[Rfam]
RNA: Small nucleolar RNA snoR104
RNA sequence: GGGUGGCUUCAUUGUCUUUGAAUGCUUCCUGAUACAAUCUUCCAACAAAAAGAUGCUGCAAAUUCCUGCUUGUGGUUCUUGAGCAAGACACGCACAAGUCUCAUUUUGCCAGUGACAUGC
Numbered sequence: 001g002g003g004u005g006g007c008u009u010c011a012u013u014g015u016c017u018u019u020g021a022a023u024g025c026u027u028c029c030u031g032a033u034a035c036a037a038u039c040u041u042c043c044a045a046c047a048a049a050a051a052g053a054u055g056c057u058g059c060a061a062a063u064u065c066c067u068g069c070u071u072g073u074g075g076u077u078c079u080u081g082a083g084c085a086a087g088a089c090a091c092g093c094a095c096a097a098g099u100c101u102c103a104u105u106u107u108g109c110c111a112g113u114g115a116c117a118u119g120c
Stems, first nucleotide, its partner, number of pairs: 001030003005026003009022001055113003068099007075091001077088003